[Rfam]
RNA sequence: CAGUUAGGGGGAUGAUGUACUACGACAGAGCUCUCAAGUUUCUGGAUCUUCUCGAUUCUGGAUCAAAGACGGAGAUGAGCCG
Numbered sequence: 001c002a003g004u005u006a007g008g009g010g011g012a013u014g015a016u017g018u019a020c021u022a023c024g025a026c027a028g029a030g031c032u033c034u035c036a037a038g039u040u041u042c043u044g045g046a047u048c049u050u051c052u053c054g055a056u057u058c059u060g061g062a063u064c065a066a067a068g069a070c071g072g073a074g075a076u077g078a079g080c081c082g
Stems, first nucleotide, its partner, number of pairs: 001082001003080003006076001
RNA: Small nucleolar RNA J33